[Rfam]
Background:
A member of the RNA family "SAM/SAH riboswitch aptamer" from Sulfitobacter sp. JL08, 49 nucleotides long. Pairs were carried over by alignment from the consensus structure, which is taken from published work. A reference for the family is Weickhmann et al. (2019), "The structure of the SAM/SAH-binding riboswitch", Nucleic Acids Res.
RNA sequence: CGCCUGCCACAACGGCUUCCUGACGUGGCGGGGUAAAACCAAUGGAGCA
Numbered sequence: 001c002g003c004c005u006g007c008c009a010c011a012a013c014g015g016c017u018u019c020c021u022g023a024c025g026u027g028g029c030g031g032g033g034u035a036a037a038a039c040c041a042a043u044g045g046a047g048c049a
Stems, first nucleotide, its partner, number of pairs: 004031007013022002015048003019045002